[Rfam]
RNA sequence: GAAUUGUCAUUCUCAUUGAUUAUACAAAUUCACAUGUUAGACUUCAGAGAUUUUUAUAAUCAAUGAGAAUGACAAUUCUUUUUCGCUGAGCAGAAA
Numbered sequence: 001g002a003a004u005u006g007u008c009a010u011u012c013u014c015a016u017u018g019a020u021u022a023u024a025c026a027a028a029u030u031c032a033c034a035u036g037u038u039a040g041a042c043u044u045c046a047g048a049g050a051u052u053u054u055u056a057u058a059a060u061c062a063a064u065g066a067g068a069a070u071g072a073c074a075a076u077u078c079u080u081u082u083u084c085g086c087u088g089a090g091c092a093g094a095a096a
Stems, first nucleotide, its partner, number of pairs: 004093004049061004
Dot-bracket structure: ...((((.........................................((((.....))))............................))))...
The record is a 96-nucleotide RNA sequence from Trifolium pratense, which matches "Small nucleolar RNA R64/Z200 family" in Rfam. It is annotated as a C/D-box small nucleolar RNA. The base pairs follow the family's consensus structure, which was predicted with PFOLD. A search with the family's covariance model found it, with a score of 68 bits.